[Rfam]
RNA sequence: GUGUGCCGAAAGCACACACAUAUAAUAAUGCGACGUUUUGUACCUAUUGGUACAAAACUCGUCAGAUGAACAGUGAGGCUGAAUUUCUGCCAAACUGUUUAUCUUUC
Numbered sequence: 001g002u003g004u005g006c007c008g009a010a011a012g013c014a015c016a017c018a019c020a021u022a023u024a025a026u027a028a029u030g031c032g033a034c035g036u037u038u039u040g041u042a043c044c045u046a047u048u049g050g051u052a053c054a055a056a057a058c059u060c061g062u063c064a065g066a067u068g069a070a071c072a073g074u075g076a077g078g079c080u081g082a083a084u085u086u087c088u089g090c091c092a093a094a095c096u097g098u099u100u101a102u103c104u105u106u107c
Stems, first nucleotide, its partner, number of pairs: 001017006031061003035058010065103010077091002
Shown here is a 107-nucleotide RNA from Treponema denticola, a member of the family "TD-2 RNA". Lineage of the source: Bacteria > Spirochaetia > Treponematales > Treponema > Treponema denticola. On this family, see Weinberg et al., Nucleic Acids Res 2007: "Identification of 22 candidate structured RNAs in bacteria using the CMfinder comparative genomics pipeline". The family's RNA type in Rfam is small RNA. The family has 36 seed sequences and 310 matches in Rfam 15.1.